[Rfam]
RNA sequence: AGCGCAGAACACGGGAGCCCGCAAUCGGGCUGAGAGGGCGCCAGCGGGGCGCCGACCGUCGAACCUGAUCCGGGUCGUGCCGGCGUAGGGAGGCCGUAACCGCAGUGC
Number, nucleotide and partner (000 for none) at each position: 001a000002g000003c000004g000005c000006a000007g095008a000009a000010c092011a059012c058013g057014g056015g000016a000017g030018c029019c028020c027021g026022c000023a000024a000025u000026c021027g020028g019029g018030c017031u000032g000033a000034g000035a000036g000037g053038g052039c051040g050041c049042c000043a000044g000045c000046g000047g000048g000049g041050c040051g039052c038053c037054g000055a000056c014057c013058g012059u011060c000061g000062a000063a000064c089065c088066u087067g086068a000069u000070c083071c082072g081073g080074g000075u000076c000077g000078u000079g000080c073081c072082g071083g070084c000085g000086u067087a066088g065089g064090g000091a000092g010093g000094c000095c007096g000097u000098a000099a000100c000101c000102g000103c000104a000105g000106u000107g000108c000
RNA: TPP riboswitch aptamer (THI element)